[Rfam]
A member of the RNA family "HNH endonuclease-associated RNA and ORF (HEARO) RNA" from Geoalkalibacter subterraneus, 246 nucleotides long.
The family has 139 seed sequences and 952 matches in Rfam 15.1.
A reference for the family is Weinberg et al. (2009), "Exceptional structured noncoding RNAs revealed by bacterial metagenome analysis", Nature.
NCBI's taxonomy places the organism under Bacteria, Pseudomonadati, Thermodesulfobacteriota, Desulfuromonadia, Geoalkalibacter.
RNA sequence: GUCAACGACCCGCCACCAAACCUAACGGUUAUGGUGGGGGCUUGUGAAAGCAAGUCCGCAAGUUGACCAGGCACAGCCACUAGCGAGAGACCGCUGAUGGGGCUACGUUAGCGGCGAAUACAUAGGCACCUUGGAAUGCCCACCCAGUUCCAAGCUCUGCGAUCUGCGAUUAAACAGGUGUACCGGGUUAAGCCAGUGUCGCAGAUAUAGAAAACCGCCGAUUAACAUUGCCGAGGGUAACAUGAC
Numbered sequence: 001g002u003c004a005a006c007g008a009c010c011c012g013c014c015a016c017c018a019a020a021c022c023u024a025a026c027g028g029u030u031a032u033g034g035u036g037g038g039g040g041c042u043u044g045u046g047a048a049a050g051c052a053a054g055u056c057c058g059c060a061a062g063u064u065g066a067c068c069a070g071g072c073a074c075a076g077c078c079a080c081u082a083g084c085g086a087g088a089g090a091c092c093g094c095u096g097a098u099g100g101g102g103c104u105a106c107g108u109u110a111g112c113g114g115c116g117a118a119u120a121c122a123u124a125g126g127c128a129c130c131u132u133g134g135a136a137u138g139c140c141c142a143c144c145c146a147g148u149u150c151c152a153a154g155c156u157c158u159g160c161g162a163u164c165u166g167c168g169a170u171u172a173a174a175c176a177g178g179u180g181u182a183c184c185g186g187g188u189u190a191a192g193c194c195a196g197u198g199u200c201g202c203a204g205a206u207a208u209a210g211a212a213a214a215c216c217g218c219c220g221a222u223u224a225a226c227a228u229u230g231c232c233g234a235g236g237g238u239a240a241c242a243u244g245a246c
Base pairs, nucleotide, nucleotide: 001067002066003065004064005063006062010040011039013037014036021028022027041054042053043052044051070232071231072230073229075104076103077102078101107226108225109224110223111222112220113219114218115217116216126160127159130154131153132152133151134150135149136148137147142238143237144236145235162206163205164204165203166202167201168200169199170198174197175196177194178193179192181190182189